RNA sequence: CAAUUUUUGUACUACACAAAAGUACUGGUCAUUUAAGUUGAGGCUCAGCACUUUUGUGGUGUGCAAAAAUGGC
Number, nucleotide and partner (000 for none) at each position: 001c000002a000003a070004u069005u068006u067007u066008u065009g064010u063011a062012c061013u000014a000015c058016a057017c056018a055019a054020a053021a052022g051023u050024a000025c048026u047027g046028g044029u043030c042031a000032u000033u000034u000035a000036a000037g000038u000039u000040g000041a000042g030043g029044c028045u000046c027047a026048g025049c000050a023051c022052u021053u020054u019055u018056g017057u016058g015059g000060u000061g012062u011063g010064c009065a008066a007067a006068a005069a004070u003071g000072g000073c000
mir-239 microRNA precursor family: a 73-nucleotide sequence from Caenorhabditis elegans. The literature on the family includes a 2009 paper in Genome Biol by Kato et al., "Dynamic expression of small non-coding RNAs, including novel microRNAs and piRNAs/21U-RNAs, during Caenorhabditis elegans development". The family has 12 seed sequences and 54 matches in Rfam 15.1.